[Rfam]
RNA sequence: GAACUAGGUAGAGGUCGCAGCAAAAAUUACUAAUAUUUUGGAGCUUUUAGAGGGGCAGAGAAGAAAUAUGAAAGGUUUUGUUGCCGAAGGAACUAUAUCGCUCUAAAGAUUGGUACCUGGGCAUAUUGGAGAAGAUCCAUGUGACUGUCAUUAAAUUUUAAUGGUGAGCUAUCGGUGAU
Numbered sequence: 001g002a003a004c005u006a007g008g009u010a011g012a013g014g015u016c017g018c019a020g021c022a023a024a025a026a027u028u029a030c031u032a033a034u035a036u037u038u039u040g041g042a043g044c045u046u047u048u049a050g051a052g053g054g055g056c057a058g059a060g061a062a063g064a065a066a067u068a069u070g071a072a073a074g075g076u077u078u079u080g081u082u083g084c085c086g087a088a089g090g091a092a093c094u095a096u097a098u099c100g101c102u103c104u105a106a107a108g109a110u111u112g113g114u115a116c117c118u119g120g121g122c123a124u125a126u127u128g129g130a131g132a133a134g135a136u137c138c139a140u141g142u143g144a145c146u147g148u149c150a151u152u153a154a155a156u157u158u159u160a161a162u163g164g165u166g167a168g169c170u171a172u173c174g175g176u177g178a179u
Stems, first nucleotide, its partner, number of pairs: 007173005017084009033069007088118003092114004098108001119146002122143005128137002148164007
Source information:
Lysine riboswitch aptamer: a 179-nucleotide RNA sequence from Propionigenium maris. NCBI's taxonomy places the organism under Bacteria, Fusobacteriati, Fusobacteriaceae, Propionigenium, Propionigenium maris. Pairs were carried over by alignment from the consensus structure, which is taken from published work.